RNA sequence: AGCUGCGUGGUGAGCCCAAAGCGAACUAUUCUUUCGCCUUUUACUAAAGAAUACCGUGUGCGCGCCACAAAUAGCAGCAAACUCUUAUUUUUGAAGGGUGUUAAAAUACCCU
Numbered sequence: 001a002g003c004u005g006c007g008u009g010g011u012g013a014g015c016c017c018a019a020a021g022c023g024a025a026c027u028a029u030u031c032u033u034u035c036g037c038c039u040u041u042u043a044c045u046a047a048a049g050a051a052u053a054c055c056g057u058g059u060g061c062g063c064g065c066c067a068c069a070a071a072u073a074g075c076a077g078c079a080a081a082c083u084c085u086u087a088u089u090u091u092u093g094a095a096g097g098g099u100g101u102u103a104a105a106a107u108a109c110c111c112u
Stems, first nucleotide, its partner, number of pairs: 003077004008067005014061002017058002027053008095112007
Dot-bracket structure: ..((((.(((((.((.((........((((((((...........))))))))...)).)).)))))......)))).................(((((((....)))))))

Source information: A member of the RNA family "U5 spliceosomal RNA" from Oryza sativa, 112 nucleotides long. It scores 87 bits against the family's covariance model. The organism belongs to Oryza sativa, within Eukaryota.